Bacterial RNase P class A: a 438-nucleotide sequence from Cyanobium sp. CACIAM 14. The match comes from Rfam's covariance-model search (209 bits). The literature on the family includes a 2013 paper in RNA Biol by Beauregard et al., "Identification and characterization of small RNAs in Yersinia pestis". From the family's description: Ribonuclease P (RNase P) is a ubiquitous endoribonuclease, found in archaea, bacteria and eukarya as well as chloroplasts and mitochondria.
RNA sequence: AAAGCAGGCGAGGUGAUCACGAUCGGUGCGGCAUCGCCUUCGGGUGGCGCCGCGGCCGUUUGAGGAAAGUCCGGGCUCCCCAAUGGCCAGGCCUGCUGGGUAACGCCCAGUGCGGGUGACCGUGAGGACAGUGCCACAGAAACACACCGCCGAUGGCUCGCGGGGGAGGUUCGCCUUGCCCGGCGCACAGGCAAGGGUGCAAGGGUGCGGUAAGAGCGCACCAGCGGCAUCGUGAGGUGCCGGCUCGGUAAACCCCGGCUGGGAGCAAGGCCCAGGGACAACGGUUGGCCAUCUUCCCCGUCCCGAUUUCCAUGCGCCGCUCGAGUCCGCCGGUAACGGCGGUCCCAGACAGAUGAUCACCCCUCCUGCCAUCGACGGUACCCAGGGUGCCUUUGAUGGCAGGGGAGAACAGAACCCGGCUUACGUCCUGCUUUCCCC
Numbered sequence: 001a002a003a004g005c006a007g008g009c010g011a012g013g014u015g016a017u018c019a020c021g022a023u024c025g026g027u028g029c030g031g032c033a034u035c036g037c038c039u040u041c042g043g044g045u046g047g048c049g050c051c052g053c054g055g056c057c058g059u060u061u062g063a064g065g066a067a068a069g070u071c072c073g074g075g076c077u078c079c080c081c082a083a084u085g086g087c088c089a090g091g092c093c094u095g096c097u098g099g100g101u102a103a104c105g106c107c108c109a110g111u112g113c114g115g116g117u118g119a120c121c122g123u124g125a126g127g128a129c130a131g132u133g134c135c136a137c138a139g140a141a142a143c144a145c146a147c148c149g150c151c152g153a154u155g156g157c158u159c160g161c162g163g164g165g166g167a168g169g170u171u172c173g174c175c176u177u178g179c180c181c182g183g184c185g186c187a188c189a190g191g192c193a194a195g196g197g198u199g200c201a202a203g204g205g206u207g208c209g210g211u212a213a214g215a216g217c218g219c220a221c222c223a224g225c226g227g228c229a230u231c232g233u234g235a236g237g238u239g240c241c242g243g244c245u246c247g248g249u250a251a252a253c254c255c256c257g258g259c260u261g262g263g264a265g266c267a268a269g270g271c272c273c274a275g276g277g278a279c280a281a282c283g284g285u286u287g288g289c290c291a292u293c294u295u296c297c298c299c300g301u302c303c304c305g306a307u308u309u310c311c312a313u314g315c316g317c318c319g320c321u322c323g324a325g326u327c328c329g330c331c332g333g334u335a336a337c338g339g340c341g342g343u344c345c346c347a348g349a350c351a352g353a354u355g356a357u358c359a360c361c362c363c364u365c366c367u368g369c370c371a372u373c374g375a376c377g378g379u380a381c382c383c384a385g386g387g388u389g390c391c392u393u394u395g396a397u398g399g400c401a402g403g404g405g406a407g408a409a410c411a412g413a414a415c416c417c418g419g420c421u422u423a424c425g426u427c428c429u430g431c432u433u434u435c436c437c438c
Stems, first nucleotide, its partner, number of pairs: 001434008010424001012361007020062003024058004067422003071419005076265004090260003094257002096110005111125001112123004126255002131253002133249003147196002149192003154187002204222006224244001225242007269318003276310003325344001327342006